MIR397 microRNA precursor family: a 112-nucleotide sequence from Carex littledalei.

[Rfam]
RNA sequence: UGAAAAUGCAUCAUUGAGUGCAGCGUUGAUGAUCUCCUUUGUUGAAGGAGGAGAAAAAAAAAAAAACAGAGACAACAGGGCAUCACCAGCGCUGCAUUCAAUUAUGCGUUUU
Dot-bracket structure: .....((((((.((((((((((((((((.(((..................................................))).)))))))))))))))).))))))...
Pairs were carried over by alignment from the consensus structure, which was predicted with WAR.
The source organism's lineage runs through Eukaryota, Streptophytina, Mesangiospermae, Cariceae and Carex subgen. Euthyceras.
For this family Rfam cites "High throughput approaches reveal splicing of primary microRNA transcripts and tissue specific expression of mature microRNAs in Vitis vinifera" (Mica et al., BMC Genomics, 2009).